[Rfam]
RNA sequence: CUUACCCGGGGAGAUCUCCCGAAUGAGAGUUUGGGAGAAGUCAGCAGAAGCCGUAGUAGCGAAGAAGCCUUGGAAACCAGGCAGAGCGAAGGGC
Numbered sequence: 001c002u003u004a005c006c007c008g009g010g011g012a013g014a015u016c017u018c019c020c021g022a023a024u025g026a027g028a029g030u031u032u033g034g035g036a037g038a039a040g041u042c043a044g045c046a047g048a049a050g051c052c053g054u055a056g057u058a059g060c061g062a063a064g065a066a067g068c069c070u071u072g073g074a075a076a077c078c079a080g081g082c083a084g085a086g087c088g089a090a091g092g093g094c
Stems, first nucleotide, its partner, number of pairs: 001027001003025002007021004041048002050094003059087002067082003
Group II catalytic intron D1-D4-1: a 94-nucleotide RNA sequence from Methylomicrobium album. The match comes from Rfam's covariance-model search (45 bits).